[Rfam]
RNA sequence: UGUGGAGGUCCGGAGUCAGUGGGUUAUCGCAAAUGUAGGUCCUUUGUGGACGACUGUUUCCUUUGUGGAAAACCCCUUCCUCUUGGAAAAUCAUCUCCCUUCGGGGAAAACCCUGUCCCUUCGUGGGAUUUCCUUCCCACUGAUUUAAAUUUGACCUUCUU
Numbered sequence: 001u002g003u004g005g006a007g008g009u010c011c012g013g014a015g016u017c018a019g020u021g022g023g024u025u026a027u028c029g030c031a032a033a034u035g036u037a038g039g040u041c042c043u044u045u046g047u048g049g050a051c052g053a054c055u056g057u058u059u060c061c062u063u064u065g066u067g068g069a070a071a072a073c074c075c076c077u078u079c080c081u082c083u084u085g086g087a088a089a090a091u092c093a094u095c096u097c098c099c100u101u102c103g104g105g106g107a108a109a110a111c112c113c114u115g116u117c118c119c120u121u122c123g124u125g126g127g128a129u130u131u132c133c134u135u136c137c138c139a140c141u142g143a144u145u146u147a148a149a150u151u152u153g154a155c156c157u158u159c160u161u
Base pairs, nucleotide, nucleotide: 002161004159006157007156008155009154010153013146015144016143017142018141019140020139021138022137023136039051040050041049042048058070059069060068061067078127079126080125082123
Dot-bracket structure: .(.(.(((((..(.(((((((((...............((((.....))))......((((.....)))).......(((.(........................................).)))........))))))))).)......))))).).)

Annotation
A member of the RNA family "Nematode sRNA ceN72-3_ceN74-2" from Caenorhabditis nigoni, 161 nucleotides long. The organism belongs to Caenorhabditis, within Eukaryota. The family has 13 seed sequences and 521 matches in Rfam 15.1. A reference for the family is Jia et al. (2007), "Systematic identification of non-coding RNA 2,2,7-trimethylguanosine cap structures in Caenorhabditis elegans", BMC Mol Biol. The family's RNA type in Rfam is small RNA.